[Rfam]
RNA sequence: GCGAGAUACCUGGUCCACCCGGCGAGAGCGCCCGAUAAACUGUCCACGGACGGACGCGGGGCGCAGCCCCCUGCCGGUCCGCAAAUGAUCAGCCAGCAGCCGCUGCAACCCCAGGGAG
Numbered sequence: 001g002c003g004a005g006a007u008a009c010c011u012g013g014u015c016c017a018c019c020c021g022g023c024g025a026g027a028g029c030g031c032c033c034g035a036u037a038a039a040c041u042g043u044c045c046a047c048g049g050a051c052g053g054a055c056g057c058g059g060g061g062c063g064c065a066g067c068c069c070c071c072u073g074c075c076g077g078u079c080c081g082c083a084a085a086u087g088a089u090c091a092g093c094c095a096g097c098a099g100c101c102g103c104u105g106c107a108a109c110c111c112c113a114g115g116g117a118g
Base pairs, nucleotide, nucleotide: 048080049079050078051077053075056074058072059071060070061069094105095104096103097102